[Rfam]
This 86-nucleotide RNA sequence from Hemibagrus wyckioides belongs to the Rfam family "mir-15 microRNA precursor family". From the family's description: This family represents the related mir-15a and mir-15b sequences. In humans miR-15a and miR-16 are clustered within 0.5 kb at 13q14. This region has been shown to be deleted in more than half of B cell chronic lymphocytic leukaemias (CLL). Both miR-15a and miR-16 are deleted or down-regulated in more than two thirds of CLL cases. The mature sequence is excised from the 5' arm of the hairpin. On this family, see Lagos-Quintana et al., Science 2001: "Identification of novel genes coding for small expressed RNAs". It scores 58 bits against the family's covariance model.
RNA sequence: CCAGAGGGCUCUGUAGCAGCACAUCAUGGUUUGUAGGUUCCCAGGUUGAUUUCCAAAUCAUUAUGUGCUGCUACUGGGAACACUGG
Numbered sequence: 001c002c003a004g005a006g007g008g009c010u011c012u013g014u015a016g017c018a019g020c021a022c023a024u025c026a027u028g029g030u031u032u033g034u035a036g037g038u039u040c041c042c043a044g045g046u047u048g049a050u051u052u053c054c055a056a057a058u059c060a061u062u063a064u065g066u067g068c069u070g071c072u073a074c075u076g077g078g079a080a081c082a083c084u085g086g
Stems, first nucleotide, its partner, number of pairs: 001086004006081001013074012026061008035052002